[Rfam]
RNA sequence: GGCUGUAAUCCGGCUCAACCCAAGGUAUUUCGGACGCGGGUUCGAAUCCCGCCAGCUCCACCAUCGACGGGGCUGACUUGGUUUCGACGGGGUAUACGAAGGAAGAGACGCAGCCCGAAAGGCGACGGACGUAAUCCGCGCAAAUCCUUAGAUGGUAACCAACCUUCUAAUCUGCAAGUAAUGCAGCAA
Numbered sequence: 001g002g003c004u005g006u007a008a009u010c011c012g013g014c015u016c017a018a019c020c021c022a023a024g025g026u027a028u029u030u031c032g033g034a035c036g037c038g039g040g041u042u043c044g045a046a047u048c049c050c051g052c053c054a055g056c057u058c059c060a061c062c063a064u065c066g067a068c069g070g071g072g073c074u075g076a077c078u079u080g081g082u083u084u085c086g087a088c089g090g091g092g093u094a095u096a097c098g099a100a101g102g103a104a105g106a107g108a109c110g111c112a113g114c115c116c117g118a119a120a121g122g123c124g125a126c127g128g129a130c131g132u133a134a135u136c137c138g139c140g141c142a143a144a145u146c147c148u149u150a151g152a153u154g155g156u157a158a159c160c161a162a163c164c165u166u167c168u169a170a171u172c173u174g175c176a177a178g179u180a181a182u183g184c185a186g187c188a189a
Base pairs, nucleotide, nucleotide: 001115002114003113004112005111014105015104026094027093028092030090031089032088036052037051038050039049040048053075054074055073056072057071058070059069116131117130

Record summary
permuted transfer-messenger RNA: a 189-nucleotide sequence from Chitinimonas arctica. For this family Rfam cites "Phylogenetic analysis of tmRNA secondary structure" (Williams and Bartel, RNA, 1996).